[Rfam]
The family of this 179-nucleotide RNA sequence is "permuted transfer-messenger RNA". It is annotated as a non-coding RNA gene. The match comes from Rfam's covariance-model search (135 bits). Bacterial tmRNA, also known as 10Sa RNA or SsrA, is named for its dual tRNA and mRNA-like properties. Its role is to liberate the mRNA from a stalled ribosome.
RNA sequence: GGUGGCUUACACCAGUGUUUCGGACAGCGGUUCGAUUCCGCUCAGCUCCAUCACGAGGGGCUGCAAUGGUUUCGACGGGGCAUGAGGAAGGUUACUGAAGCCUGCUCGGCAAGAGCAAAAUCGUAUCUGCGAACAACAUCGUUCGUUUCUCCCGUCAAGCUGCUCUUGUAGCAGCCUGA
Numbered sequence: 001g002g003u004g005g006c007u008u009a010c011a012c013c014a015g016u017g018u019u020u021c022g023g024a025c026a027g028c029g030g031u032u033c034g035a036u037u038c039c040g041c042u043c044a045g046c047u048c049c050a051u052c053a054c055g056a057g058g059g060g061c062u063g064c065a066a067u068g069g070u071u072u073c074g075a076c077g078g079g080g081c082a083u084g085a086g087g088a089a090g091g092u093u094a095c096u097g098a099a100g101c102c103u104g105c106u107c108g109g110c111a112a113g114a115g116c117a118a119a120a121u122c123g124u125a126u127c128u129g130c131g132a133a134c135a136a137c138a139u140c141g142u143u144c145g146u147u148u149c150u151c152c153c154g155u156c157a158a159g160c161u162g163c164u165c166u167u168g169u170a171g172c173a174g175c176c177u178g179a
Stems, first nucleotide, its partner, number of pairs: 001096005016082003020078003026042005043063007
Dot-bracket structure: (((((..........(((.(((...(((((.......)))))(((((((.......)))))))............))).))).........)))))...................................................................................